[Rfam]
RNA sequence: CGUAGGAGGGGGAUUUGGACUCUGGCCUUAAUUUGCCUAACGGUCAGUCUUUUUCUCUCUCCUAUG
Numbered sequence: 001c002g003u004a005g006g007a008g009g010g011g012g013a014u015u016u017g018g019a020c021u022c023u024g025g026c027c028u029u030a031a032u033u034u035g036c037c038u039a040a041c042g043g044u045c046a047g048u049c050u051u052u053u054u055c056u057c058u059c060u061c062c063u064a065u066g
Base pairs, nucleotide, nucleotide: 001066002065003064004063005062006061007060008059010057011056012055013054017050018049019048020047021046025044026043027042029040
Rfam assigns this 66-nucleotide RNA sequence from Cloeon dipterum to the family "mir-14 microRNA precursor family". It scores 54 bits against the family's covariance model. The source organism's lineage runs through Eukaryota, Panarthropoda, Allotriocarida, Pisciforma and Cloeon. For this family Rfam cites "Direct sequencing and expression analysis of a large number of miRNAs in Aedes aegypti and a multi-species survey of novel mosquito miRNAs" (Li et al., BMC Genomics, 2009). Pairs were carried over by alignment from the consensus structure, which was predicted with RNAalifold.